[Rfam]
RNA sequence: UUUUAAGUAUAAGUAUAUCCUGUGCAAUAUUUGGGACAUAUUUAUACUAUAA
Numbered sequence: 001u002u003u004u005a006a007g008u009a010u011a012a013g014u015a016u017a018u019c020c021u022g023u024g025c026a027a028u029a030u031u032u033g034g035g036a037c038a039u040a041u042u043u044a045u046a047c048u049a050u051a052a
Base pairs, nucleotide, nucleotide: 006048007047008046009045010044011043012042014040015039016038018036019035020034021033022031